[Rfam]
A member of the RNA family "Small nucleolar RNA SNORD60" from Probosciger aterrimus, 92 nucleotides long. The family has 22 seed sequences and 825 matches in Rfam 15.1. NCBI's taxonomy places the organism under Eukaryota, Vertebrata, Sauria, Theropoda, Probosciger. A search with the family's covariance model found it, with a score of 43 bits. The literature on the family includes a 2002 paper in Mol Cell Biol by Galardi et al., "Purified box C/D snoRNPs are able to reproduce site-specific 2'-O-methylation of target RNA in vitro". Rfam links the family to the GO terms nucleolus and RNA processing.
RNA sequence: GGCCGGUGAUGAUCUCCAUGUACCCUUUCUGACACCUCGUCUGAGGGCGGCGGGCGACCGCGGCCCAUGCUGAGGAUGCACGGCUGAGGCCC
Numbered sequence: 001g002g003c004c005g006g007u008g009a010u011g012a013u014c015u016c017c018a019u020g021u022a023c024c025c026u027u028u029c030u031g032a033c034a035c036c037u038c039g040u041c042u043g044a045g046g047g048c049g050g051c052g053g054g055c056g057a058c059c060g061c062g063g064c065c066c067a068u069g070c071u072g073a074g075g076a077u078g079c080a081c082g083g084c085u086g087a088g089g090c091c092c
Base pairs, nucleotide, nucleotide: 001091002090003089004088047064048063050061051060052059053058
Dot-bracket structure: ((((..........................................((.((((....)))).)).......................)))).